[Rfam]
RNA sequence: UGGCUAUGAAAUGUAAAUCCCUACUGGCAGGGGGAUACAUGGAGCUUAUGGGCGGGUUUAGUGUGACAACCGCGAGCCAGUUAGGCGUAUGCUGAAAAGAAAACACUUAUA
Dot-bracket structure: .(((......(((((..(((((.[[[[...))))))))))...)))..............(((.............]]]]...(((....)))..........))).....
About this RNA: Rfam assigns this 111-nucleotide RNA from Butyrivibrio sp. XPD2006 to the family "drum RNA". Rfam describes the family as follows. Firmicutes, Bacteroidetes (1 example), Proteobacteria (2 examples), Spirochaetes (2 examples). Pairs were carried over by alignment from the consensus structure, which is taken from published work.